This 180-nucleotide RNA sequence from Pseudomonas benzenivorans belongs to the Rfam family "Pseudomonas sRNA P1".
A search with the family's covariance model found it, with a score of 142 bits.
NCBI's taxonomy places the organism under Bacteria, Pseudomonadati, Pseudomonadota, Gammaproteobacteria, Pseudomonas.
[Rfam]
RNA sequence: ACACCCGUUUUAUUGCUGUUAUGGGUUUCAGCCGAGCUUAGCCUUGUUCAUUUUUUUACACAAUAGCCAUGUAAAAAAUUGAACACAGCCCACUGAGCACCGCGGCGGGCCUGAGCGAAACGCGCACCGCAAUGCCCUGAAACGCCCUAAAAUUGGCCACGAGGCCUCUUUUUAGGGCAG
Number, nucleotide and partner (000 for none) at each position: 001a000002c000003a000004c000005c000006c000007g000008u000009u000010u000011u000012a000013u000014u000015g000016c000017u000018g000019u000020u000021a000022u000023g101024g100025g000026u000027u097028u096029c000030a000031g000032c000033c000034g093035a000036g091037c000038u000039u000040a000041g089042c088043c000044u085045u000046g084047u083048u082049c000050a000051u000052u078053u077054u076055u075056u074057u073058a072059c071060a000061c000062a000063a000064u000065a000066g000067c000068c000069a000070u000071g059072u058073a057074a056075a055076a054077a053078a052079u000080u000081g000082a048083a047084c046085a044086c000087a000088g042089c041090c000091c036092a000093c034094u000095g000096a028097g027098c000099a000100c024101c023102g000103c000104g000105g000106c000107g000108g000109g000110c000111c000112u000113g000114a000115g000116c000117g000118a000119a000120a000121c000122g000123c000124g000125c000126a000127c000128c000129g000130c000131a000132a000133u000134g000135c000136c000137c000138u000139g000140a000141a000142a000143c000144g000145c000146c000147c000148u000149a000150a000151a000152a000153u000154u000155g000156g000157c000158c000159a000160c000161g000162a000163g000164g178165c177166c000167u175168c000169u000170u000171u000172u000173u000174a000175g167176g000177g165178c164179a000180g000